[Rfam]
RNA: ZMP/ZTP riboswitch aptamer (pfl RNA motif)
RNA sequence: GCAUCGGGUAGCAACUGACGACAUUUGUGGAAUCAACCACGUGGAAGCUACACGGUUAUAGCGUCGGGUCGUCUGGGCAGAGAUA
Numbered sequence: 001g002c003a004u005c006g007g008g009u010a011g012c013a014a015c016u017g018a019c020g021a022c023a024u025u026u027g028u029g030g031a032a033u034c035a036a037c038c039a040c041g042u043g044g045a046a047g048c049u050a051c052a053c054g055g056u057u058a059u060a061g062c063g064u065c066g067g068g069u070c071g072u073c074u075g076g077g078c079a080g081a082g083a084u085a
Stems, first nucleotide, its partner, number of pairs: 003056004008051005015044002017073005027040004063078003